[Rfam]
Nucleotides: 099
Base pairs, nucleotide, nucleotide: 019084020083021082022081023080024079025078029047030046031045032044033043056075057074058073059072060071061070
Number, partner (000 for none) and nucleotide at each position: 001000u002000g003000g004000g005000a006000u007000u008000a009000a010000a011000u012000u013000a014000a015000u016000a017000a018000a019084g020083c021082u022081u023080a024079u025078a026000u027000a028000u029047g030046g031045c032044u033043a034000u035000a036000a037000u038000a039000u040000g041000g042000u043033u044032a045031g046030c047029c048000g049000u050000c051000u052000c053000u054000a055000c056075c057074u058073g059072a060071u061070a062000c063000c064000a065000a066000a067000a068000a069000u070061u071060a072059u073058c074057a075056g076000a077000c078025u079024a080023u081022a082021a083020g084019u085000a086000a087000a088000a089000a090000c091000a092000a093000g094000g095000g096000u097000a098000u099000u

This 99-nucleotide RNA sequence from Vagococcus penaei belongs to the Rfam family "Purine riboswitch aptamer".
Lineage of the source: Bacteria > Bacillati > Bacilli > Enterococcaceae > Vagococcus.
Rfam describes the family as follows. Riboswitches are metabolite binding domains within certain messenger RNAs that serve as precision sensors for their corresponding targets. Allosteric rearrangement of mRNA structure is mediated by ligand binding, and this results in modulation of gene expression. A class of riboswitches that selectively recognises guanine and becomes saturated at concentrations as low as 5 nM. In Bacillus subtilis, this mRNA motif is located on at least five separate transcriptional units that together encode 17 genes that are mostly involved in purine transport and purine nucleotide biosynthesis. It has also been shown that some members of this family are specific for adenine instead.
The family has 133 seed sequences and 4,097 matches in Rfam 15.1.
The family's consensus secondary structure is taken from published work.